[Rfam]
RNA sequence: UGUCAUAAACCCGUAGAUCCGAUCUUGUGGUGAAUCUGACCGCACAAGCUCGCUCUACGGGUCUCUGGCUG
Dot-bracket structure: .((((.(..(((..(((..(((.((((((.............)))))).))).)))..)))..).))))..
Numbered sequence: 001u002g003u004c005a006u007a008a009a010c011c012c013g014u015a016g017a018u019c020c021g022a023u024c025u026u027g028u029g030g031u032g033a034a035u036c037u038g039a040c041c042g043c044a045c046a047a048g049c050u051c052g053c054u055c056u057a058c059g060g061g062u063c064u065c066u067g068g069c070u071g
Stems, first nucleotide, its partner, number of pairs: 002069004007064001010061003015056003020052003024048006